[Rfam]
Background
The record is a 145-nucleotide RNA sequence from Gossypium mustelinum, which matches "MIR7502 microRNA precursor family" in Rfam. The family has 6 seed sequences and 74,505 matches in Rfam 15.1.
RNA sequence: UAUUAAAAAUUGUAUCCGUUUCUAUUGUUAAAAAUUGGUGUUGCUGGUAGAAUAACCAAACAAUUACGCAUGGCCCGUCAUAUGUGCCUAAUUUAGACAUAAAUGGACCAAUUUUUAACAGUAAAAAUGGAUGAAAUUUUUAAUA
Number, nucleotide and partner (000 for none) at each position: 001u000002a144003u143004u142005a141006a140007a139008a138009a137010u136011u135012g000013u133014a132015u131016c130017c000018g128019u127020u126021u125022c000023u123024a122025u121026u120027g000028u118029u117030a116031a115032a114033a113034a000035u000036u000037g000038g000039u000040g000041u000042u000043g000044c000045u000046g000047g000048u000049a000050g000051a000052a000053u000054a000055a000056c000057c000058a000059a000060a000061c000062a000063a000064u000065u000066a000067c000068g000069c000070a000071u000072g000073g000074c000075c000076c000077g000078u000079c000080a000081u000082a000083u000084g000085u000086g000087c000088c000089u000090a000091a000092u000093u000094u000095a000096g000097a000098c000099a000100u000101a000102a000103a000104u000105g000106g000107a000108c000109c000110a000111a000112u000113u033114u032115u031116u030117a029118a028119c000120a026121g025122u024123a023124a000125a021126a020127a019128u018129g000130g016131a015132u014133g013134a000135a011136a010137u009138u008139u007140u006141u005142a004143a003144u002145a000